The family of this 32-nucleotide sequence is "Iron response element II". On this family, see Gunshin et al., FEBS Lett 2001: "Iron-dependent regulation of the divalent metal ion transporter". The family's RNA type in Rfam is cis-regulatory element. Rfam links the family to the GO term response to iron ion. The sequence is in the family's curated seed alignment. Rfam's curators write: IRE, TFRC, SLC40A1, SDHB, SLC11A2, CDC42BPA, ACO2, ALAS2_H.SAPIENS, CDC14A, EPAS1, ALAS2, qoxD, Hao1, NDUFS1, transferrin, Aconitate.

RNA sequence: UAGCCAUCAGAGCCAGUGUGUUUCUAUGGUUU
Numbered sequence: 001u002a003g004c005c006a007u008c009a010g011a012g013c014c015a016g017u018g019u020g021u022u023u024c025u026a027u028g029g030u031u032u
Stems, first nucleotide, its partner, number of pairs: 002031006009025003012021002014018001